Background
The record is a 102-nucleotide RNA from Treponema denticola, which matches "TD-2 RNA" in Rfam. The source organism's lineage runs through Bacteria, Spirochaetota, Treponematales, Treponema and Treponema denticola. It scores 54 bits against the family's covariance model. The family has 36 seed sequences and 310 matches in Rfam 15.1.
[Rfam]
RNA sequence: GGUUUGUAAACAAACCGCAUACAACCACAUGAUGUUUUGUGCUUUGCACAAAACUCGAAGAUAAACAGAGAGGCAGAAUUCCUGCCGAGCUGUUUAUCAUAU
Numbered sequence: 001g002g003u004u005u006g007u008a009a010a011c012a013a014a015c016c017g018c019a020u021a022c023a024a025c026c027a028c029a030u031g032a033u034g035u036u037u038u039g040u041g042c043u044u045u046g047c048a049c050a051a052a053a054c055u056c057g058a059a060g061a062u063a064a065a066c067a068g069a070g071a072g073g074c075a076g077a078a079u080u081c082c083u084g085c086c087g088a089g090c091u092g093u094u095u096a097u098c099a100u101a102u
Base pairs, nucleotide, nucleotide: 001016002015003014004013005012006011030057031056032055034054035053036052037051038050039049040048041047060098061097062096063095064094065093066092067091068090072086073085074084075083